Small nucleolar RNA R16: a 90-nucleotide RNA from Solanum lycopersicum. A search with the family's covariance model found it, with a score of 49 bits. The organism belongs to Solanum subgen. Lycopersicon, within Eukaryota.
RNA sequence: GGAGGCAAGUGAUGUUUAAACAAAAUCUUACUACUACACACUGAAAUUUAAUGAAGAAAAUUAACUCUCAAUUAAUUUUCUGAUGCCUCC
Numbered sequence: 001g002g003a004g005g006c007a008a009g010u011g012a013u014g015u016u017u018a019a020a021c022a023a024a025a026u027c028u029u030a031c032u033a034c035u036a037c038a039c040a041c042u043g044a045a046a047u048u049u050a051a052u053g054a055a056g057a058a059a060a061u062u063a064a065c066u067c068u069c070a071a072u073u074a075a076u077u078u079u080c081u082g083a084u085g086c087c088u089c090c
Stems, first nucleotide, its partner, number of pairs: 003088005